[Rfam]
RNA sequence: GCGAUGAGCUGAUUUGUGUAAGACGAAGAAUAAAGCAGUACAUGUGCAUGUGAACCACAUGAUUCUUCGCCACAAAUAUUUCGUUAAAAACGUCUAUUUAGGCGUUUU
Numbered sequence: 001g002c003g004a005u006g007a008g009c010u011g012a013u014u015u016g017u018g019u020a021a022g023a024c025g026a027a028g029a030a031u032a033a034a035g036c037a038g039u040a041c042a043u044g045u046g047c048a049u050g051u052g053a054a055c056c057a058c059a060u061g062a063u064u065c066u067u068c069g070c071c072a073c074a075a076a077u078a079u080u081u082c083g084u085u086a087a088a089a090a091c092g093u094c095u096a097u098u099u100a101g102g103c104g105u106u107u108u
Stems, first nucleotide, its partner, number of pairs: 014075005024069008041061002044058003087108009
Dot-bracket structure: .............(((((.....((((((((.........((.(((.........))).)))))))))).)))))...........(((((((((....)))))))))
This 108-nucleotide RNA from Virgibacillus indicus belongs to the Rfam family "BsrF". On this family, see Saito et al., Gene 2008: "Novel small RNA-encoding genes in the intergenic regions of Bacillus subtilis". It is annotated as a small RNA. NCBI's taxonomy places the organism under Bacteria, Bacillati, Bacillota, Caryophanales, Virgibacillus. The family's consensus secondary structure was predicted with WAR.